RNA sequence: UUACUCUGGUCUCUCUUCAUUGCGAAUAAAUCUUUCGCCUUUUACUAAAGAUUUCCGUGGAGAGGGACAACACAAAUGAGUCUUAAAACAAUUUUUUGAGUGCUCGACGAAAGUCGGGCC
Numbered sequence: 001u002u003a004c005u006c007u008g009g010u011c012u013c014u015c016u017u018c019a020u021u022g023c024g025a026a027u028a029a030a031u032c033u034u035u036c037g038c039c040u041u042u043u044a045c046u047a048a049a050g051a052u053u054u055c056c057g058u059g060g061a062g063a064g065g066g067a068c069a070a071c072a073c074a075a076a077u078g079a080g081u082c083u084u085a086a087a088a089c090a091a092u093u094u095u096u097u098g099a100g101u102g103c104u105c106g107a108c109g110a111a112a113g114u115c116g117g118g119c120c
Stems, first nucleotide, its partner, number of pairs: 003081004009068011028054008100120001102119006
U5 spliceosomal RNA: a 120-nucleotide RNA sequence from Phaedon cochleariae. Its family is annotated with U5 snRNP and spliceosomal tri-snRNP complex assembly in the Gene Ontology. For this family Rfam cites "The uRNA database" (Zwieb, Nucleic Acids Res, 1997). The match comes from Rfam's covariance-model search (100 bits). Rfam describes the family as follows. U5 RNA is a component of both types of known spliceosome. The precise function of this molecule is unknown, though it is known that the 5' loop is required for splice site selection and p220 binding, and that both the 3' stem-loop and the Sm site are important for Sm protein binding and cap methylation. Rfam classes the family as a spliceosomal small nuclear RNA.